[Rfam]
RNA sequence: UUGUGGAGUAGAGGCGCGGGUUUCAUGAGUACUUGUUCGGAGGACGGGCCGUUGAUGGACAAGGAAAGGGAAACGCCGCCGAAGUUUGCUGGAAGACCCGACAGAAAGCAGGCUGGGACUGUAUCCGAACAGGAACAGGACUGUCACAAAAGCGCAUGGGUUGCUUUUGUGAAGCGCUAAUCCGCAG
Numbered sequence: 001u002u003g004u005g006g007a008g009u010a011g012a013g014g015c016g017c018g019g020g021u022u023u024c025a026u027g028a029g030u031a032c033u034u035g036u037u038c039g040g041a042g043g044a045c046g047g048g049c050c051g052u053u054g055a056u057g058g059a060c061a062a063g064g065a066a067a068g069g070g071a072a073a074c075g076c077c078g079c080c081g082a083a084g085u086u087u088g089c090u091g092g093a094a095g096a097c098c099c100g101a102c103a104g105a106a107a108g109c110a111g112g113c114u115g116g117g118a119c120u121g122u123a124u125c126c127g128a129a130c131a132g133g134a135a136c137a138g139g140a141c142u143g144u145c146a147c148a149a150a151a152g153c154g155c156a157u158g159g160g161u162u163g164c165u166u167u168u169g170u171g172a173a174g175c176g177c178u179a180a181u182c183c184g185c186a187g
Base pairs, nucleotide, nucleotide: 006182007181009179010178011177016079017078018077019076021073022072023071024070032063033062034061035060036059037058038057039056083114084113085112086111087110088109089108090107115142116141119138120137121136122135124133125132144172145171146170147169148168149167150166151165152164153163